Description
Shown here is a 113-nucleotide RNA from Tripterygium wilfordii, a member of the family "MIR390 microRNA precursor family". It scores 99 bits against the family's covariance model.
[Rfam]
RNA sequence: UGGAAGAAGCUGGUUAAGCUCAGGAGGGAUAGCGCCAUGGACCAUACUCUAUUCUCGUUUGUUCGAGUUGUUAUAUAUGGCGCUAUCCAUCCUGAGUUUCAUCGCUUCUUCUU
Numbered sequence: 001u002g003g004a005a006g007a008a009g010c011u012g013g014u015u016a017a018g019c020u021c022a023g024g025a026g027g028g029a030u031a032g033c034g035c036c037a038u039g040g041a042c043c044a045u046a047c048u049c050u051a052u053u054c055u056c057g058u059u060u061g062u063u064c065g066a067g068u069u070g071u072u073a074u075a076u077a078u079g080g081c082g083c084u085a086u087c088c089a090u091c092c093u094g095a096g097u098u099u100c101a102u103c104g105c106u107u108c109u110u111c112u113u
Stems, first nucleotide, its partner, number of pairs: 010104001017098009027088010
Its family is annotated with RISC complex and miRNA-mediated post-transcriptional gene silencing in the Gene Ontology. The base pairs follow the family's consensus structure, which was predicted with WAR.